Rfam assigns this 78-nucleotide sequence from Jaculus jaculus to the family "mir-3473 microRNA precursor family". Its family is annotated with cellular response to mechanical stimulus, miRNA-mediated post-transcriptional gene silencing and RISC complex in the Gene Ontology. NCBI's taxonomy places the organism under Eukaryota, Gnathostomata, Sarcopterygii, Dipodinae, Jaculus. Pairs were carried over by alignment from the consensus structure, which was predicted with RNAalifold.
RNA sequence: ACUGCUAAGCCAUCUCUCCAGCCCUAAAAUAUUUUUAAAAAAUACAAAUAUUGGGGGCUGGAGAGAUGGCUUAACAGU
Numbered sequence: 001a002c003u004g005c006u007a008a009g010c011c012a013u014c015u016c017u018c019c020a021g022c023c024c025u026a027a028a029a030u031a032u033u034u035u036u037a038a039a040a041a042a043u044a045c046a047a048a049u050a051u052u053g054g055g056g057g058c059u060g061g062a063g064a065g066a067u068g069g070c071u072u073a074a075c076a077g078u
Base pairs, nucleotide, nucleotide: 002077003076004075006073007072008071009070010069011068012067013066014065015064016063017062018061019060020059021058022057023056024055